RNA sequence: GAAAGGUCGGGCAGAUACCCGGCUGGACGCGCGAACUUGCGUGUCUCAUUUAGG
Numbered sequence: 001g002a003a004a005g006g007u008c009g010g011g012c013a014g015a016u017a018c019c020c021g022g023c024u025g026g027a028c029g030c031g032c033g034a035a036c037u038u039g040c041g042u043g044u045c046u047c048a049u050u051u052a053g054g
Base pairs, nucleotide, nucleotide: 005024006023007022008021009020010019011018025046026045027044028043029042030041031040032039033038
The record is a 54-nucleotide RNA, which matches "S4-Clostridia ribosomal protein leader" in Rfam.
It is annotated as a cis-regulatory leader.